[Rfam]
RNA: terC RNA
Organism: Brevundimonas halotolerans
RNA sequence: UGUGCGGGACGGGCCCCUCUGGCGCGUUCCGGGGCCCCCCUCGUCCUCCGGUCCCGGAUCGUGUGAUGUCGGACCGCAUCG
Numbered sequence: 001u002g003u004g005c006g007g008g009a010c011g012g013g014c015c016c017c018u019c020u021g022g023c024g025c026g027u028u029c030c031g032g033g034g035c036c037c038c039c040c041u042c043g044u045c046c047u048c049c050g051g052u053c054c055c056g057g058a059u060c061g062u063g064u065g066a067u068g069u070c071g072g073a074c075c076g077c078a079u080c081g
Stems, first nucleotide, its partner, number of pairs: 006075002010071003022064005027058003
Dot-bracket structure: .....((..(((.........((((((((..........................))).)))))....)))..))......